[Rfam]
RNA sequence: AAGCAGGAUAAGUUACAGUACAGCUUGUUCAGUGCUGUUGUCGUUCCCCCUGCACACAGAAACACGUCUUCUCCUAUCCCUGUCUGUCAGCAUCCCACAGCAGGCAGGGAUGCUUGGUCUCAGACAC
Numbered sequence: 001a002a003g004c005a006g007g008a009u010a011a012g013u014u015a016c017a018g019u020a021c022a023g024c025u026u027g028u029u030c031a032g033u034g035c036u037g038u039u040g041u042c043g044u045u046c047c048c049c050c051u052g053c054a055c056a057c058a059g060a061a062a063c064a065c066g067u068c069u070u071c072u073c074c075u076a077u078c079c080c081u082g083u084c085u086g087u088c089a090g091c092a093u094c095c096c097a098c099a100g101c102a103g104g105c106a107g108g109g110a111u112g113c114u115u116g117g118u119c120u121c122a123g124a125c126a127c
Stems, first nucleotide, its partner, number of pairs: 003053005015041003020038005079108004084103004

A member of the RNA family "Small nucleolar RNA SNORA63" from Hucho hucho, 127 nucleotides long.
The source organism's lineage runs through Eukaryota, Deuterostomia, Chordata, Protacanthopterygii and Hucho.
A search with the family's covariance model found it, with a score of 93 bits.
The base pairs follow the family's consensus structure, which was predicted with PFOLD.
Rfam's curators write: E3 belongs to the H/ACA class of snoRNAs and is involved in the processing of eukaryotic pre-rRNA and has regions of complementarity to 18S rRNA. E3 is encoded in introns in the gene for protein synthesis initiation factor 4AII.
Gene Ontology terms of the family: RNA processing and nucleolus.
Rfam classes the family as an H/ACA-box small nucleolar RNA.
For this family Rfam cites "Three small nucleolar RNAs that are involved in ribosomal RNA precursor processing" (Mishra and Eliceiri, Proc Natl Acad Sci U S A, 1997).